The record is a 75-nucleotide RNA from Lepisosteus oculatus, which matches "mir-196 microRNA precursor family" in Rfam.
The organism belongs to Lepisosteus, within Eukaryota.
The family has 84 seed sequences and 1,813 matches in Rfam 15.1.
A reference for the family is Lagos-Quintana et al. (2003), "New microRNAs from mouse and human", RNA.
The base pairs follow the family's consensus structure, which was predicted with PFOLD.
RNA sequence: CGAGUGGUUUAGGUAGUUUCAUGUUGUUGGGCUCCAAUUCGUGUUCCUGCAACACGAAGCUGCCUUAAUCGCCCC
Numbered sequence: 001c002g003a004g005u006g007g008u009u010u011a012g013g014u015a016g017u018u019u020c021a022u023g024u025u026g027u028u029g030g031g032c033u034c035c036a037a038u039u040c041g042u043g044u045u046c047c048u049g050c051a052a053c054a055c056g057a058a059g060c061u062g063c064c065u066u067a068a069u070c071g072c073c074c075c
Stems, first nucleotide, its partner, number of pairs: 004072006011065009022054006029047003